Overview:
Shown here is a 110-nucleotide RNA from Bacillus thermotolerans, a member of the family "TPP riboswitch aptamer (THI element)". The base pairs follow the family's consensus structure, which is taken from published work. Gene Ontology term of the family: thiamine pyrophosphate binding.
[Rfam]
RNA sequence: AGCAACUGCUAGAGGUGCCGUGAAACGGCUGAGAGAAAAACAAUCAAGUUUUUCAACUCUUUGAACCUGAUCUGGAUGAUGCCAGCGUAGGGAAGUGGUUUAACCAAUGG
Numbered sequence: 001a002g003c004a005a006c007u008g009c010u011a012g013a014g015g016u017g018c019c020g021u022g023a024a025a026c027g028g029c030u031g032a033g034a035g036a037a038a039a040a041c042a043a044u045c046a047a048g049u050u051u052u053u054c055a056a057c058u059c060u061u062u063g064a065a066c067c068u069g070a071u072c073u074g075g076a077u078g079a080u081g082c083c084a085g086c087g088u089a090g091g092g093a094a095g096u097g098g099u100u101u102a103a104c105c106a107a108u109g110g
Stems, first nucleotide, its partner, number of pairs: 006098005011060004017029005036053005066091004072085004